RNA sequence: GCUGUUUUCAGGUGGAUGACUUCACAAUUUCAAUACUCAAGAAAAUGAAAAGAAAUUGCACAGUAUCCAUCUGCAAUCCGCU
Numbered sequence: 001g002c003u004g005u006u007u008u009c010a011g012g013u014g015g016a017u018g019a020c021u022u023c024a025c026a027a028u029u030u031c032a033a034u035a036c037u038c039a040a041g042a043a044a045a046u047g048a049a050a051a052g053a054a055a056u057u058g059c060a061c062a063g064u065a066u067c068c069a070u071c072u073g074c075a076a077u078c079c080g081c082u
Base pairs, nucleotide, nucleotide: 009073010072011071012070013069014068015067016066017065019064020063025058026057027056028055029054030053031052
RNA: mir-363 microRNA precursor family